[Rfam]
RNA sequence: AAACGGCCCCCUAUGUUUUGAUUCUUUCACAGUUUUGGACCUCCAAGGCAAAAAUAAAAUAAAAAAAUUGACAUGCGGCACCUCACUUAGGUGCCACGUCAGCGUUGACCGAGUCAACAAUGGACUGGGAGUCCAAAAAUGUCAAAGAAUCAAAACAUAGGGGGCUGUUU
Numbered sequence: 001a002a003a004c005g006g007c008c009c010c011c012u013a014u015g016u017u018u019u020g021a022u023u024c025u026u027u028c029a030c031a032g033u034u035u036u037g038g039a040c041c042u043c044c045a046a047g048g049c050a051a052a053a054a055u056a057a058a059a060u061a062a063a064a065a066a067a068u069u070g071a072c073a074u075g076c077g078g079c080a081c082c083u084c085a086c087u088u089a090g091g092u093g094c095c096a097c098g099u100c101a102g103c104g105u106u107g108a109c110c111g112a113g114u115c116a117a118c119a120a121u122g123g124a125c126u127g128g129g130a131g132u133c134c135a136a137a138a139a140u141g142u143c144a145a146a147g148a149a150u151c152a153a154a155a156c157a158u159a160g161g162g163g164g165c166u167g168u169u170u
Stems, first nucleotide, its partner, number of pairs: 001170002004167005012159016029142003033138008042129004073099002077095006
Record summary
Shown here is a 170-nucleotide RNA from Medicago truncatula, a member of the family "MIR2619 microRNA precursor family". Gene Ontology terms of the family: RISC complex and miRNA-mediated post-transcriptional gene silencing. Taxonomically the source falls in Medicago (Eukaryota, Euphyllophyta, Gunneridae, fabids). The base pairs follow the family's consensus structure, which was predicted with RNAalifold.